The family of this 137-nucleotide RNA from Acipenser ruthenus is "Small nucleolar RNA SNORA5". The organism belongs to Acipenser, within Eukaryota. Gene Ontology terms of the family: nucleolus and RNA processing.
RNA sequence: UGCAGCCUUGUCAAAUUCAGUAUGUCAUUCUCUGUGGACUAUACUGGCCAAAAUGGCUGCUACAAGAAACUUGUCGUUAAUGUGCCCCACAUCUUAAACUAAUGGAUAUUGGGGAUAUAUCAGUGCUACAGACAAAU
Number, nucleotide and partner (000 for none) at each position: 001u000002g060003c059004a058005g057006c000007c000008u000009u000010g000011u000012c000013a000014a000015a000016u000017u000018c046019a045020g044021u043022a042023u041024g039025u038026c037027a000028u000029u000030c000031u000032c000033u000034g000035u000036g000037g026038a025039c024040u000041a023042u022043a021044c020045u019046g018047g000048c000049c000050a000051a000052a000053a000054u000055g000056g000057c005058u004059g003060c002061u000062a000063c000064a000065a000066g000067a000068a000069a000070c000071u000072u000073g129074u128075c000076g126077u125078u123079a000080a000081u000082g000083u000084g000085c114086c113087c112088c111089a110090c000091a000092u000093c000094u000095u000096a000097a000098a000099c000100u000101a000102a000103u000104g000105g000106a000107u000108a000109u000110u089111g088112g087113g086114g085115a000116u000117a000118u000119a000120u000121c000122a000123g078124u000125g077126c076127u000128a074129c073130a000131g000132a000133c000134a000135a000136a000137u000
Its Rfam clan is "SNORA5 clan". It scores 63 bits against the family's covariance model.